[Rfam]
RNA sequence: GAUUUGCAGUGAUGACUCCAUAAUAUUCAAGCUCAACAGACCGGAAUGCAGGCUCCUCUGUUUAGAGGAUUUUGCGUGUCGAUAAUCCCGCUGAACUGAGCAUUC
Numbered sequence: 001g002a003u004u005u006g007c008a009g010u011g012a013u014g015a016c017u018c019c020a021u022a023a024u025a026u027u028c029a030a031g032c033u034c035a036a037c038a039g040a041c042c043g044g045a046a047u048g049c050a051g052g053c054u055c056c057u058c059u060g061u062u063u064a065g066a067g068g069a070u071u072u073u074g075c076g077u078g079u080c081g082a083u084a085a086u087c088c089c090g091c092u093g094a095a096c097u098g099a100g101c102a103u104u105c
Stems, first nucleotide, its partner, number of pairs: 001105002005102003